[Rfam]
The record is a 117-nucleotide RNA from Rhizobacter sp. Root29, which matches "ALIL pseudoknot" in Rfam. A search with the family's covariance model found it, with a score of 110 bits. The source organism's lineage runs through Bacteria, Pseudomonadati, Betaproteobacteria, Sphaerotilaceae and Rhizobacter. Pairs were carried over by alignment from the consensus structure, which is taken from published work. The family's RNA type in Rfam is cis-regulatory element.

RNA sequence: CGCGUUUUUCGCCCAGGCGGAGCUCGACCGCCGACUCAAGUCCUGAGGGACUUGAUUGACAAGCACCGAGACACAUUCGGGGUCGAGCCGAUCUGCAAGGUUUUGCAGAUUUCCCCG
Dot-bracket structure: ...............(((((.......))))).............................................(((((.......(.(((((((....))))))).).)))))